[Rfam]
RNA sequence: GUUAAGGGGUUUGUUGUCUGGCUCGAGGCAUCCGGGACUCCGGUUUCUCCUUUCCUACUGGAGGCGCCUAGCUUCCGGCGAGCUCGGAGCCUCGGACCAGGCUUCAAUCCCUUUAAC
Numbered sequence: 001g002u003u004a005a006g007g008g009g010u011u012u013g014u015u016g017u018c019u020g021g022c023u024c025g026a027g028g029c030a031u032c033c034g035g036g037a038c039u040c041c042g043g044u045u046u047c048u049c050c051u052u053u054c055c056u057a058c059u060g061g062a063g064g065c066g067c068c069u070a071g072c073u074u075c076c077g078g079c080g081a082g083c084u085c086g087g088a089g090c091c092u093c094g095g096a097c098c099a100g101g102c103u104u105c106a107a108u109c110c111c112u113u114u115a116a117c
Stems, first nucleotide, its partner, number of pairs: 001117009011107003016102006024094006
Shown here is a 117-nucleotide RNA from Oryza glumipatula, a member of the family "mir-166 microRNA precursor family". Taxonomically the source falls in Oryza (Eukaryota, Embryophyta, Mesangiospermae, commelinids). Gene Ontology terms of the family: RISC complex and miRNA-mediated post-transcriptional gene silencing. Rfam 15.1 lists 2,599 matches to the family in 229 species. A reference for the family is Reinhart et al. (2002), "MicroRNAs in plants", Genes Dev. It scores 70 bits against the family's covariance model. About the family: This family represents the plant microRNA (miRNA) precursor mir-166.